The family of this 75-nucleotide sequence from Faecalibacillus faecis is "Glycine riboswitch aptamer". Taxonomically the source falls in Faecalibacillus (Bacteria, Bacillati, Bacillota, Erysipelotrichia).

RNA sequence: AUGAUAAUGGCGAAAGAGAUUCUACAAGAACACCGAAGAAUUAAAGAUUUCAGGUAAAAGGAUCGCUAUUGGACG
Numbered sequence: 001a002u003g004a005u006a007a008u009g010g011c012g013a014a015a016g017a018g019a020u021u022c023u024a025c026a027a028g029a030a031c032a033c034c035g036a037a038g039a040a041u042u043a044a045a046g047a048u049u050u051c052a053g054g055u056a057a058a059a060g061g062a063u064c065g066c067u068a069u070u071g072g073a074c075g
Stems, first nucleotide, its partner, number of pairs: 006070008020030004032055003035051002039049003